[Rfam]
RNA: S15-Flavobacteria ribosomal protein leader
Organism: Pustulibacterium marinum
RNA sequence: UAUAUUUGCAGCUUGAUAUGAAAACCAUAUCAGUACAUAAAAAUCAUUAAAUAAUAUUGGCAUG
Numbered sequence: 001u002a003u004a005u006u007u008g009c010a011g012c013u014u015g016a017u018a019u020g021a022a023a024a025c026c027a028u029a030u031c032a033g034u035a036c037a038u039a040a041a042a043a044u045c046a047u048u049a050a051a052u053a054a055u056a057u058u059g060g061c062a063u064g
Base pairs, nucleotide, nucleotide: 014032015031016030017029018028019027